[Rfam]
RNA sequence: GUCGCUGCGAGGCGGGGUGGGAAGCAACUGGAGGCGAACCGGCAGUCCGUAGGGGACGAACCUGAUUCGGCGUUGGUCUGUGGCGAACCUGCUCGUUCGAGGUGAAGCCUGGAAGAAACGUGCGGCGCUGAGACGACUGAGAAAGCGACCGGACGACAGCCUGCGUGGUUGAGGAUGGAAUGUCGGGAAGGCAAGGCGG
Dot-bracket structure: .(((((....)))))............(((...((...(((((.((((((..........(((.(....(((..(((....(((..((((.........))))...))).................................................)))..)))...).)))))))).))))))....))....)))
RNA: Group II catalytic intron D1-D4-3